[Rfam]
RNA: Prion pseudoknot
RNA sequence: CCAUGGUGGUGGAGGCUGGGGUCAGCCCCAUGGUGGUGGCACC
Numbered sequence: 001c002c003a004u005g006g007u008g009g010u011g012g013a014g015g016c017u018g019g020g021g022u023c024a025g026c027c028c029c030a031u032g033g034u035g036g037u038g039g040c041a042c043c
Stems, first nucleotide, its partner, number of pairs: 001033006